A member of the RNA family "Small nucleolar RNA snoR2/U65" from Dorcoceras hygrometricum, 152 nucleotides long. A search with the family's covariance model found it, with a score of 126 bits. For this family Rfam cites "Localization and processing from a polycistronic precursor of novel snoRNAs in maize" (Shaw et al., J Cell Sci, 1998). It is annotated as an H/ACA-box small nucleolar RNA.
RNA sequence: GGUCCAAUGCCACGUCGCCUGUAGCCGUAUGUCGGCAAUGACUGGCGAUGCUUUGAUUGGGCCGAAAUCAAUUCAUUUUUCGCAUUUUGAUAGGAAUCUGUAGAUUGAUUGUUUUCAGUUCAUCUCCGGAGCCGUUUUUUGCGAUUACAUUC
Numbered sequence: 001g002g003u004c005c006a007a008u009g010c011c012a013c014g015u016c017g018c019c020u021g022u023a024g025c026c027g028u029a030u031g032u033c034g035g036c037a038a039u040g041a042c043u044g045g046c047g048a049u050g051c052u053u054u055g056a057u058u059g060g061g062c063c064g065a066a067a068u069c070a071a072u073u074c075a076u077u078u079u080u081c082g083c084a085u086u087u088u089g090a091u092a093g094g095a096a097u098c099u100g101u102a103g104a105u106u107g108a109u110u111g112u113u114u115u116c117a118g119u120u121c122a123u124c125u126c127c128g129g130a131g132c133c134g135u136u137u138u139u140u141g142c143g144a145u146u147a148c149a150u151u152c
Stems, first nucleotide, its partner, number of pairs: 002062007009054001013050006021042002024036003080144005093133002098129003102125004